A member of the RNA family "mir-191 microRNA precursor family" from Podarcis muralis, 91 nucleotides long. A reference for the family is Kim et al. (2004), "Identification of many microRNAs that copurify with polyribosomes in mammalian neurons", Proc Natl Acad Sci U S A. The match comes from Rfam's covariance-model search (100 bits). Pairs were carried over by alignment from the consensus structure, which was predicted with RNAalifold. Lineage of the source: Eukaryota > Opisthokonta > Bilateria > Deuterostomia > Podarcis.
[Rfam]
RNA sequence: AGCGUGUUAGCGGGCAACGGAAUCCCAAAAGCAGCUGUUUUUCUCUUAGCAUUCCAGCUGCGCUUGGAUUUCGUUCCCUGCUCUCCUGCUC
Numbered sequence: 001a002g003c004g005u006g007u008u009a010g011c012g013g014g015c016a017a018c019g020g021a022a023u024c025c026c027a028a029a030a031g032c033a034g035c036u037g038u039u040u041u042u043c044u045c046u047u048a049g050c051a052u053u054c055c056a057g058c059u060g061c062g063c064u065u066g067g068a069u070u071u072c073g074u075u076c077c078c079u080g081c082u083c084u085c086c087u088g089c090u091c
Stems, first nucleotide, its partner, number of pairs: 009082005017074009027065002031061007